[Rfam]
RNA sequence: CUAUGGCAACUAUUUUGUCAUGGCGGAAGGAG
Dot-bracket structure: ((((((((.......)))))))).........
Background:
Shown here is a 32-nucleotide RNA sequence, a member of the family "L31-Firmicutes ribosomal protein leader". The family's RNA type in Rfam is cis-regulatory leader. The literature on the family includes a 2020 paper in BMC Microbiol by Eckert and Weinberg, "Discovery of 20 novel ribosomal leader candidates in bacteria and archaea". The base pairs follow the family's consensus structure, which is taken from published work. The family is grouped with related families in Rfam's "Ribosomal Protein L31 Leader clan".